[Rfam]
RNA sequence: CUCCCCGAAAUGUAUUUAGGUACAGCGUCGUGUUCUAGUUUAUUAGAGGUAGAGCUACUGAUUGGAUGCGGGGGUUUCACCGCCUACCAAUUCCUGACAAACUCCGAAUGCUAAUAAAUGAUAUACGGCAGUGAGGGUAUGGGUGCUAAGGUCCAUAUCCGAGAGGGAAAGAACCCGGACCAUCAGCUAAGGUCCCCAAAUAUAUGCUAAGUUGACCAAACGCGGUCUGACUGCAGUGACAGCUAGGAUGUUGGCUUGGAAGCAGCCAUACAUUUAAAGAGUGCGUAACAGCUCACUAGUCGAGCGGUCGGGCAUGGAUAAUACUCGGGCAUAAGCAUAUUACCGAAGCUAUGGACUUAAUUAUUUAAGUGGUAGGGGAGCAUUCUAAUUGCGUAGAAGGUGAGCUGUGAGGUUUGCUGGAGCGAUUAGAAAAGAAAAU
Numbered sequence: 001c002u003c004c005c006c007g008a009a010a011u012g013u014a015u016u017u018a019g020g021u022a023c024a025g026c027g028u029c030g031u032g033u034u035c036u037a038g039u040u041u042a043u044u045a046g047a048g049g050u051a052g053a054g055c056u057a058c059u060g061a062u063u064g065g066a067u068g069c070g071g072g073g074g075u076u077u078c079a080c081c082g083c084c085u086a087c088c089a090a091u092u093c094c095u096g097a098c099a100a101a102c103u104c105c106g107a108a109u110g111c112u113a114a115u116a117a118a119u120g121a122u123a124u125a126c127g128g129c130a131g132u133g134a135g136g137g138u139a140u141g142g143g144u145g146c147u148a149a150g151g152u153c154c155a156u157a158u159c160c161g162a163g164a165g166g167g168a169a170a171g172a173a174c175c176c177g178g179a180c181c182a183u184c185a186g187c188u189a190a191g192g193u194c195c196c197c198a199a200a201u202a203u204a205u206g207c208u209a210a211g212u213u214g215a216c217c218a219a220a221c222g223c224g225g226u227c228u229g230a231c232u233g234c235a236g237u238g239a240c241a242g243c244u245a246g247g248a249u250g251u252u253g254g255c256u257u258g259g260a261a262g263c264a265g266c267c268a269u270a271c272a273u274u275u276a277a278a279g280a281g282u283g284c285g286u287a288a289c290a291g292c293u294c295a296c297u298a299g300u301c302g303a304g305c306g307g308u309c310g311g312g313c314a315u316g317g318a319u320a321a322u323a324c325u326c327g328g329g330c331a332u333a334a335g336c337a338u339a340u341u342a343c344c345g346a347a348g349c350u351a352u353g354g355a356c357u358u359a360a361u362u363a364u365u366u367a368a369g370u371g372g373u374a375g376g377g378g379a380g381c382a383u384u385c386u387a388a389u390u391g392c393g394u395a396g397a398a399g400g401u402g403a404g405c406u407g408u409g410a411g412g413u414u415u416g417c418u419g420g421a422g423c424g425a426u427u428a429g430a431a432a433a434g435a436a437a438a439u
Stems, first nucleotide, its partner, number of pairs: 001380006011024005026131001027129007037122001038119009052105001053103002059099002064094003070088002072085004135160010165176003180354004185350003191344003200341001202340006221316002225313010242300005248273003253267003274278001279294001283292002355370006381434001383431010399418008
Dot-bracket structure: ((((((....(((((....))))).((((((((...((((((((((.....(((....((...(((...((((((......)))).))...)))...))..)).).....)))))))))..)))))))).)...((((((((((......))))))))))....(((......)))...((((.(((...(((......(.((((((.............((..((((((((((.......(((((.(((..(((.........)))...)))(...)(...((......)).).)))))...)))))))))).))..................))))))))))...)))))))((((((....))))))....))))))(.((((((((((......((((((((....))))))))...))))))))))..).....
The family of this 439-nucleotide part of an RNA from Capnocytophaga canis is "Bacterial large subunit ribosomal RNA". It scores 2703 bits against the family's covariance model.